The family of this 309-nucleotide RNA sequence from Triplophysa tibetana is "Nuclear RNase P".
The literature on the family includes a 1998 paper in Annu Rev Biochem by Frank and Pace, "Ribonuclease P: unity and diversity in a tRNA processing ribozyme".
By type it is a ribozyme.
Rfam's curators write: Ribonuclease P (RNase P) is a ubiquitous endoribonuclease, found in archaea, bacteria and eukarya as well as chloroplasts and mitochondria.
Its Rfam clan is "RNaseP clan".
The family has 116 seed sequences and 3,848 matches in Rfam 15.1.
It scores 210 bits against the family's covariance model.
Lineage of the source: Eukaryota > Opisthokonta > Neopterygii > Otophysi > Triplophysa.
[Rfam]
RNA sequence: GAGGAAGGAAGCUCACUGUAGAGGUUACAAACUGAGUGUUCAAUCACUCGACCAAUUACCUCGGGGAAGGUCUGAGACAAGAGCCAAUCGCUGUCCUCGCAGGACAUCAUCUGACGAGAUGAGCGAGUGCACAGAAAAUACGGGUUUAACCGCGGUGUUCACGCACAAGACGUUGGUACGUGCUUCAAAUACAGCAGACUAACUGAUGCGAUCCCGGUUGACUUGGAAACGCUCGCGGCUGGCGCAACGAGUACGAUGUGUGAGCUAGCACAAGAUGCUAGAACCCAAUUCAGACUACUCUCCCUCCAC
Numbered sequence: 001g002a003g004g005a006a007g008g009a010a011g012c013u014c015a016c017u018g019u020a021g022a023g024g025u026u027a028c029a030a031a032c033u034g035a036g037u038g039u040u041c042a043a044u045c046a047c048u049c050g051a052c053c054a055a056u057u058a059c060c061u062c063g064g065g066g067a068a069g070g071u072c073u074g075a076g077a078c079a080a081g082a083g084c085c086a087a088u089c090g091c092u093g094u095c096c097u098c099g100c101a102g103g104a105c106a107u108c109a110u111c112u113g114a115c116g117a118g119a120u121g122a123g124c125g126a127g128u129g130c131a132c133a134g135a136a137a138a139u140a141c142g143g144g145u146u147u148a149a150c151c152g153c154g155g156u157g158u159u160c161a162c163g164c165a166c167a168a169g170a171c172g173u174u175g176g177u178a179c180g181u182g183c184u185u186c187a188a189a190u191a192c193a194g195c196a197g198a199c200u201a202a203c204u205g206a207u208g209c210g211a212u213c214c215c216g217g218u219u220g221a222c223u224u225g226g227a228a229a230c231g232c233u234c235g236c237g238g239c240u241g242g243c244g245c246a247a248c249g250a251g252u253a254c255g256a257u258g259u260g261u262g263a264g265c266u267a268g269c270a271c272a273a274g275a276u277g278c279u280a281g282a283a284c285c286c287a288a289u290u291c292a293g294a295c296u297a298c299u300c301u302c303c304c305u306c307c308a309c
Base pairs, nucleotide, nucleotide: 001309003307004306007303008302009301012264013263014262015261016260021062022061023060024059034049035048036047037046038045072293073292074291075290076289082240083239084238085237092106093105094104095103096102107122108121109120110119111118112117123236124235125234126233127232128231129230144222145221146220265281266280267279268278269277270276